[Rfam]
RNA sequence: CAACUGAGCCAGUGAUGAUUCGGUGAACUGUAAGAAGUCAGCAGAUGCCAUAGUAGUCCAUCAGGACGAAGGGC
Numbered sequence: 001c002a003a004c005u006g007a008g009c010c011a012g013u014g015a016u017g018a019u020u021c022g023g024u025g026a027a028c029u030g031u032a033a034g035a036a037g038u039c040a041g042c043a044g045a046u047g048c049c050a051u052a053g054u055a056g057u058c059c060a061u062c063a064g065g066a067c068g069a070a071g072g073g074c
Stems, first nucleotide, its partner, number of pairs: 001025002004023005010017002037046003047074003056067004
RNA: Group II catalytic intron D1-D4-1
Organism: Sporolactobacillus shoreae